[Rfam]
RNA sequence: AAUGAGGUUUGAACGCUUUUCAUUAUAAAUCAUGUGGGCUUUUUUGCUAAAUAGAAAAAGCUCUAUAAUACCCGCGGUGGAGUUACCCACUACAGAUAUUAUAGAGCC
Number, nucleotide and partner (000 for none) at each position: 001a024002a023003u022004g021005a020006g019007g016008u015009u000010u000011g000012a000013a000014c000015g008016c007017u000018u000019u006020u005021c004022a003023u002024u001025a000026u000027a042028a041029a040030u000031c038032a000033u000034g000035u000036g000037g000038g031039c000040u029041u028042u027043u000044u000045u000046g000047c000048u000049a000050a000051a000052u000053a000054g000055a000056a000057a000058a000059a000060g107061c106062u105063c104064u000065a102066u101067a100068a099069u098070a097071c000072c095073c000074g000075c000076g091077g090078u089079g088080g087081a000082g000083u000084u000085a000086c000087c080088c079089a078090c077091u076092a000093c000094a000095g072096a000097u070098a069099u068100u067101a066102u065103a000104g063105a062106g061107c060108c000
The family of this 108-nucleotide RNA from Streptococcus sp. DD10 is "Streptococcus RNA 266". It scores 87 bits against the family's covariance model. It is annotated as a small RNA.